[Rfam]
RNA sequence: AUACCAAAAAGGCAAACUUGCUGAAAGGUGAGGACGCAAAGCCAUGGGUCUAAGGAUGAAAUCUAGGAUUGCCAGGCUGCUGAC
Numbered sequence: 001a002u003a004c005c006a007a008a009a010a011g012g013c014a015a016a017c018u019u020g021c022u023g024a025a026a027g028g029u030g031a032g033g034a035c036g037c038a039a040a041g042c043c044a045u046g047g048g049u050c051u052a053a054g055g056a057u058g059a060a061a062u063c064u065a066g067g068a069u070u071g072c073c074a075g076g077c078u079g080c081u082g083a084c
Stems, first nucleotide, its partner, number of pairs: 012037002017032006040078004045074003048069003055063003
RNA: c-di-GMP-I riboswitch aptamer
Organism: Anaerosolibacter carboniphilus